[Rfam]
Description:
Rfam assigns this 170-nucleotide sequence from Rhodanobacter glycinis to the family "Manganese Mn2+ riboswitch aptamer (yybP-ykoY)". NCBI's taxonomy places the organism under Bacteria, Pseudomonadati, Pseudomonadota, Gammaproteobacteria, Rhodanobacter. Rfam 15.1 lists 1,126 matches to the family in 1,062 species. A search with the family's covariance model found it, with a score of 64 bits.
RNA sequence: CCAGCGUUUGUCAUUGGGGAGUAGCCAUCCUCGCUCCCGACGGGCCUGAUGGCUCGUCAAUCCAGAGGAAUCCGCGUCAACAGACUUGGGGUGAUGCCCCAUGGUGCGGAUGGCCGUCGUCGGAAUCUCCGACGAACGUGCCCGGCGAGACCUUUGGCCGCGACGUGCUC
Number, nucleotide and partner (000 for none) at each position: 001c000002c000003a000004g000005c000006g000007u000008u000009u000010g000011u000012c000013a000014u000015u000016g000017g000018g000019g000020a000021g000022u000023a000024g000025c000026c000027a000028u000029c068030c067031u066032c000033g000034c000035u000036c000037c000038c000039g000040a000041c000042g000043g000044g000045c000046c000047u000048g000049a000050u000051g000052g000053c000054u000055c000056g000057u000058c000059a000060a000061u000062c000063c000064a000065g000066a031067g030068g029069a000070a111071u110072c109073c108074g107075c106076g105077u104078c103079a102080a000081c000082a000083g000084a000085c000086u000087u101088g100089g099090g098091g097092u000093g000094a000095u000096g000097c091098c090099c089100c088101a087102u079103g078104g077105u076106g075107c074108g073109g072110a071111u070112g169113g168114c167115c165116g164117u163118c162119g161120u160121c000122g000123g000124a000125a000126u000127c000128u000129c000130c000131g000132a000133c000134g000135a000136a000137c000138g000139u000140g000141c000142c000143c000144g000145g000146c000147g000148a000149g000150a000151c000152c000153u000154u000155u000156g000157g000158c000159c000160g120161c119162g118163a117164c116165g115166u000167g114168c113169u112170c000